[Rfam]
RNA: Early nodulin 40
Organism: Durio zibethinus
RNA sequence: AUGGUAUUAUUUUGGCAAAGAAAAGAAUCCAUCCAUGGGGUUUCAUAAAGCAUGGGGGGUAGGAGUUUGGGAUUCCUCACCCUCCUCCAAGAAUUAAAACUGUUUGCCUGUGCUUAGCCAAUGGCUCAGCUAAACAGUAGUCAGCAAGUUCAUGGAAAAGGAUCCUAUAGAGUAACUAGCUAGAAGAGGCUUUUGGCUAACGCACUGGCAAACCGGCAAGUCACAGAACGGCAAUUGACUCAAUCAUGAGUUUU
Numbered sequence: 001a002u003g004g005u006a007u008u009a010u011u012u013u014g015g016c017a018a019a020g021a022a023a024a025g026a027a028u029c030c031a032u033c034c035a036u037g038g039g040g041u042u043u044c045a046u047a048a049a050g051c052a053u054g055g056g057g058g059g060u061a062g063g064a065g066u067u068u069g070g071g072a073u074u075c076c077u078c079a080c081c082c083u084c085c086u087c088c089a090a091g092a093a094u095u096a097a098a099a100c101u102g103u104u105u106g107c108c109u110g111u112g113c114u115u116a117g118c119c120a121a122u123g124g125c126u127c128a129g130c131u132a133a134a135c136a137g138u139a140g141u142c143a144g145c146a147a148g149u150u151c152a153u154g155g156a157a158a159a160g161g162a163u164c165c166u167a168u169a170g171a172g173u174a175a176c177u178a179g180c181u182a183g184a185a186g187a188g189g190c191u192u193u194u195g196g197c198u199a200a201c202g203c204a205c206u207g208g209c210a211a212a213c214c215g216g217c218a219a220g221u222c223a224c225a226g227a228a229c230g231g232c233a234a235u236u237g238a239c240u241c242a243a244u245c246a247u248g249a250g251u252u253u254u
Base pairs, nucleotide, nucleotide: 058088059087102213103212104211105210106209107208122200237252238251239250240249241248